[Rfam]
RNA sequence: CUGUGCUGAGGUAGUAAGUUGUGUUGUUGUGGGGGGGUCGGGAUAUUGCAAACCCCUGUUCUGGAGAUACAACUAUACAACUUACUGCCUUCCACAG
Numbered sequence: 001c002u003g004u005g006c007u008g009a010g011g012u013a014g015u016a017a018g019u020u021g022u023g024u025u026g027u028u029g030u031g032g033g034g035g036g037g038u039c040g041g042g043a044u045a046u047u048g049c050a051a052a053c054c055c056c057u058g059u060u061c062u063g064g065a066g067a068u069a070c071a072a073c074u075a076u077a078c079a080a081c082u083u084a085c086u087g088c089c090u091u092c093c094a095c096a097g
Stems, first nucleotide, its partner, number of pairs: 001097005008091017026073002032056004060067001
Shown here is a 97-nucleotide sequence from Dicentrarchus labrax, a member of the family "let-7 microRNA precursor family". This family represents the microRNAs (miRNA) let-7 and mir-98. let-7 was identified from a study of developmental timing in C. elegans, and was later shown to be part of a much larger class of non-coding RNAs termed miRNAs. It scores 61 bits against the family's covariance model. A reference for the family is Rougvie (2001), "Control of developmental timing in animals", Nat Rev Genet. Its family is annotated with miRNA-mediated post-transcriptional gene silencing and RISC complex in the Gene Ontology.